[Rfam]
RNA sequence: CCAUGGUGGCGGUUGGGGGCAACCCCAUGGUGGCAGCUGG
Numbered sequence: 001c002c003a004u005g006g007u008g009g010c011g012g013u014u015g016g017g018g019g020c021a022a023c024c025c026c027a028u029g030g031u032g033g034c035a036g037c038u039g040g
Base pairs, nucleotide, nucleotide: 001030002029003028004027005026006025
Dot-bracket structure: ((((((..................))))))..........
The family of this 40-nucleotide sequence from Manis sp. is "Prion pseudoknot". The organism belongs to Manis, within Eukaryota. This family represents a predicted pseudoknot structure found in prion protein mRNA. It has been suggested that the family has a possible effect in prion protein translation. A reference for the family is Barrette et al. (2001), "Pseudoknots in prion protein mRNAs confirmed by comparative sequence analysis and pattern searching", Nucleic Acids Res. The family's RNA type in Rfam is cis-regulatory element.